[Rfam]
RNA sequence: GAGGUAUGAGGAAAAUACUGAUCAGUCUGAAAUACAUUUGAAGACUGUAAGAUCCAACUCUGACCUCAGCCUGGGC
Dot-bracket structure: ((((...........................................................)))).........